[Rfam]
RNA sequence: UGCUGCCAGCAGCAGCACAGAAGUAAGGGUGGCAUAGUAUGAUAUUGCCACCCUUACUUCUGUGCUGCUGGUGGUGGCA
Numbered sequence: 001u002g003c004u005g006c007c008a009g010c011a012g013c014a015g016c017a018c019a020g021a022a023g024u025a026a027g028g029g030u031g032g033c034a035u036a037g038u039a040u041g042a043u044a045u046u047g048c049c050a051c052c053c054u055u056a057c058u059u060c061u062g063u064g065c066u067g068c069u070g071g072u073g074g075u076g077g078c079a
Base pairs, nucleotide, nucleotide: 001079002078003077005075006074007073011069012068013067014066015065016064017063018062020059022058023057024056025055026054027053028052029051
This 79-nucleotide RNA from Chelydra serpentina belongs to the Rfam family "mir-16 microRNA precursor family". Pairs were carried over by alignment from the consensus structure, which was predicted with PFOLD.